Bacterial large signal recognition particle RNA: a 266-nucleotide RNA sequence from Criibacterium bergeronii.
The family's consensus secondary structure is taken from published work.
A search with the family's covariance model found it, with a score of 170 bits.
Rfam classes the family as a non-coding RNA gene.
The signal recognition particle (SRP) is a universally conserved ribonucleoprotein involved in the co-translational targeting of proteins to membranes.

RNA sequence: CUGUGAUAGAUGGGGAAGUAGCGGAGCCUUGUAACCUGCAAUCCGCUUUAGCAGGGUCGAUGCUCGUUUUGAGUGUAUAUUUUGCAGAGCCGUCCUAAUAUAAUUUUCGUUGAGAUUGUAGUCUCAUACAAUAGUGUGUCGUGAACCCCGUCAGGUCAGGAAUGAAGCAGCGGUAAGCGAAUUUCAUUAUGUGCUGUGAGGGUGCUGCGGUUGAGUUAAUUAUUUUGGGAAACGUCUGUGGAAUAUAUGCGAAAGCGAGUUCACAG
Numbered sequence: 001c002u003g004u005g006a007u008a009g010a011u012g013g014g015g016a017a018g019u020a021g022c023g024g025a026g027c028c029u030u031g032u033a034a035c036c037u038g039c040a041a042u043c044c045g046c047u048u049u050a051g052c053a054g055g056g057u058c059g060a061u062g063c064u065c066g067u068u069u070u071g072a073g074u075g076u077a078u079a080u081u082u083u084g085c086a087g088a089g090c091c092g093u094c095c096u097a098a099u100a101u102a103a104u105u106u107u108c109g110u111u112g113a114g115a116u117u118g119u120a121g122u123c124u125c126a127u128a129c130a131a132u133a134g135u136g137u138g139u140c141g142u143g144a145a146c147c148c149c150g151u152c153a154g155g156u157c158a159g160g161a162a163u164g165a166a167g168c169a170g171c172g173g174u175a176a177g178c179g180a181a182u183u184u185c186a187u188u189a190u191g192u193g194c195u196g197u198g199a200g201g202g203u204g205c206u207g208c209g210g211u212u213g214a215g216u217u218a219a220u221u222a223u224u225u226u227g228g229g230a231a232a233c234g235u236c237u238g239u240g241g242a243a244u245a246u247a248u249g250c251g252a253a254a255g256c257g258a259g260u261u262c263a264c265a266g
Base pairs, nucleotide, nucleotide: 001266002265003264004263005262006261009058010057011056012030013029014028015027019023035055036054037053038052039051063259064258065257068255069254070253073250074249075248076247077246079244080243081242082241083240084239085238086237087236088235093230095228096227097226098225100223103220104219108215114212115211116210117209118208119207120206121205122204123200124199125198126197127196128195129191130190132189133188134187135186136185139180140179141178142177148173149172150171151170156165157164158163